[Rfam]
The family of this 87-nucleotide RNA sequence from Phyllotreta striolata is "mir-276 microRNA precursor family". A search with the family's covariance model found it, with a score of 83 bits. On this family, see Skalsky et al., BMC Genomics 2010: "Identification of microRNAs expressed in two mosquito vectors, Aedes albopictus and Culex quinquefasciatus". Rfam links the family to the GO terms miRNA-mediated post-transcriptional gene silencing and RISC complex. The family has 42 seed sequences and 200 matches in Rfam 15.1.
RNA sequence: UUCUGGGUAGACCACUAGCGAGGUAUAGAGUUCCUACGUGAUUGUUAUAUUGUAGGAACUUCAUACCGUGCUCUUGGAUGUACCGUU
Numbered sequence: 001u002u003c004u005g006g007g008u009a010g011a012c013c014a015c016u017a018g019c020g021a022g023g024u025a026u027a028g029a030g031u032u033c034c035u036a037c038g039u040g041a042u043u044g045u046u047a048u049a050u051u052g053u054a055g056g057a058a059c060u061u062c063a064u065a066c067c068g069u070g071c072u073c074u075u076g077g078a079u080g081u082a083c084c085g086u087u
Stems, first nucleotide, its partner, number of pairs: 012077003017072004022067005028061010